The record is a 43-nucleotide RNA sequence from Enterobacteriaceae bacterium strain FGI 57, which matches "ES036 (CssrF) sRNA" in Rfam. NCBI's taxonomy places the organism under Bacteria, Pseudomonadati, Pseudomonadota, Enterobacterales, Enterobacteriaceae. Pairs were carried over by alignment from the consensus structure, which was predicted with RNAfold. Rfam classes the family as a small RNA. A reference for the family is Rau et al. (2015), "Differential expression of small RNAs under chemical stress and fed-batch fermentation in E. coli", BMC Genomics. Rfam's curators write: Differentially expressed under several chemical stress conditions. Also identified in Shigella as CssrF.
RNA sequence: AAAAUAUUGCAAAUUCAAUACAUUGCAGAAAUAUUGUAGGCCU
Numbered sequence: 001a002a003a004a005u006a007u008u009g010c011a012a013a014u015u016c017a018a019u020a021c022a023u024u025g026c027a028g029a030a031a032u033a034u035u036g037u038a039g040g041c042c043u
Stems, first nucleotide, its partner, number of pairs: 005030001008027005
Dot-bracket structure: ....(..(((((..........)))))..).............